Record summary: Shown here is a 115-nucleotide sequence from Clostridium butyricum, a member of the family "FMN riboswitch aptamer (RFN element)". Rfam's curators put it in the seed alignment.
RNA sequence: AUAUAUCUUCAGGGCAGGGUGAAAAUCCCUACUGGCGGUACAGCCCGCGAGCUAUUUUAGCAGAUUCGGUGUAAUUCCGAAGCCAACAGUAUAGUCUGGAUGAAAGAAGGUAACC
Number, nucleotide and partner (000 for none) at each position: 001a000002u000003a000004u112005a111006u110007c109008u108009u107010c106011a000012g000013g000014g000015c000016a000017g029018g028019g027020u000021g000022a000023a000024a000025a000026u000027c019028c018029c017030u000031a095032c094033u085034g084035g048036c047037g046038g045039u000040a000041c000042a000043g083044c082045c038046c037047g036048c035049g000050a000051g061052c060053u000054a000055u000056u000057u000058u000059a000060g052061c051062a000063g000064a000065u081066u080067c079068g078069g077070u000071g000072u000073a000074a000075u000076u000077c069078c068079g067080a066081a065082g044083c043084c034085a033086a000087c098088a097089g096090u000091a000092u000093a000094g032095u031096c089097u088098g087099g000100a000101u000102g000103a000104a000105a000106g010107a009108a008109g007110g006111u005112a004113a000114c000115c000